The record is a 99-nucleotide sequence from Oryctolagus cuniculus, which matches "mir-1184 microRNA precursor family" in Rfam. Taxonomically the source falls in Oryctolagus (Eukaryota, Tetrapoda, Amniota, Glires).
RNA sequence: CCUGCAGAAGGAGGUGCAGCAGGUGGUUCUGCUCCGCGGUCAGCAGCGGCCACAGCUCCACCUGCAGGGCCUUGACAGCUUCCGUGUCCUUUUCGUGGG
Numbered sequence: 001c002c003u004g005c006a007g008a009a010g011g012a013g014g015u016g017c018a019g020c021a022g023g024u025g026g027u028u029c030u031g032c033u034c035c036g037c038g039g040u041c042a043g044c045a046g047c048g049g050c051c052a053c054a055g056c057u058c059c060a061c062c063u064g065c066a067g068g069g070c071c072u073u074g075a076c077a078g079c080u081u082c083c084g085u086g087u088c089c090u091u092u093u094c095g096u097g098g099g
Stems, first nucleotide, its partner, number of pairs: 005097002007094003011091004019083001021081004026076003030069001032067002036065004046061001048059002